[Rfam]
RNA sequence: AGAGACGGAUGUGCAGUCGCUUUACAUUUAUUGUGAAGAGGAAAGUCCGGACUUUAACUGCAAAAAAGCAUAGGCAUUAUUGCAGAAAACGGUAGCAGGUAAUACCUGUCACCCGCAAGGGCAGAGGUGCGAACAGAGACGCCUUUUCCGGAGACGGAAAAAGUAUCCUUAUAUCAAAGGAAACGUUUUCCCGCAAACGAGAAAAUGGGGAAAAUAGCCUGAAAAAAGGAUAAGCUUUUGCAGCAAUGCAGAAGGUGAAACGGCUAAAUCCUUACUGGAAAGCAAGACUGAAGUAUAGUCGCUUGACCGUUAAAAGUGAUUUUAACGGCAGAGAAAUGACUGCACUUUUAAAAUUUAUUUUUAAAAGACAGAAUUCGGCUUAUAAUCCGUCUUUAUUU
Numbered sequence: 001a002g003a004g005a006c007g008g009a010u011g012u013g014c015a016g017u018c019g020c021u022u023u024a025c026a027u028u029u030a031u032u033g034u035g036a037a038g039a040g041g042a043a044a045g046u047c048c049g050g051a052c053u054u055u056a057a058c059u060g061c062a063a064a065a066a067a068g069c070a071u072a073g074g075c076a077u078u079a080u081u082g083c084a085g086a087a088a089a090c091g092g093u094a095g096c097a098g099g100u101a102a103u104a105c106c107u108g109u110c111a112c113c114c115g116c117a118a119g120g121g122c123a124g125a126g127g128u129g130c131g132a133a134c135a136g137a138g139a140c141g142c143c144u145u146u147u148c149c150g151g152a153g154a155c156g157g158a159a160a161a162a163g164u165a166u167c168c169u170u171a172u173a174u175c176a177a178a179g180g181a182a183a184c185g186u187u188u189u190c191c192c193g194c195a196a197a198c199g200a201g202a203a204a205a206u207g208g209g210g211a212a213a214a215u216a217g218c219c220u221g222a223a224a225a226a227a228g229g230a231u232a233a234g235c236u237u238u239u240g241c242a243g244c245a246a247u248g249c250a251g252a253a254g255g256u257g258a259a260a261c262g263g264c265u266a267a268a269u270c271c272u273u274a275c276u277g278g279a280a281a282g283c284a285a286g287a288c289u290g291a292a293g294u295a296u297a298g299u300c301g302c303u304u305g306a307c308c309g310u311u312a313a314a315a316g317u318g319a320u321u322u323u324a325a326c327g328g329c330a331g332a333g334a335a336a337u338g339a340c341u342g343c344a345c346u347u348u349u350a351a352a353a354u355u356u357a358u359u360u361u362u363a364a365a366a367g368a369c370a371g372a373a374u375u376c377g378g379c380u381u382a383u384a385a386u387c388c389g390u391c392u393u394u395a396u397u398u
Stems, first nucleotide, its partner, number of pairs: 001394010011383001012344007020038007043381003047378005052282004067276002070273001095109005110124001112121003125272003131264001143207001145203003149199002215232002218229003234256001235254008286300004308327008
Rfam assigns this 398-nucleotide RNA from Candidatus Endomicrobiellum trichonymphae to the family "Bacterial RNase P class A". Rfam describes the family as follows. Ribonuclease P (RNase P) is a ubiquitous endoribonuclease, found in archaea, bacteria and eukarya as well as chloroplasts and mitochondria. It scores 121 bits against the family's covariance model. Rfam classes the family as a ribozyme. The family's consensus secondary structure is taken from published work. Rfam links the family to the GO terms dimeric ribonuclease P complex, tRNA processing and ribonuclease P activity. Lineage of the source: Bacteria > Pseudomonadati > Elusimicrobiota > Endomicrobiaceae > Candidatus Endomicrobiellum.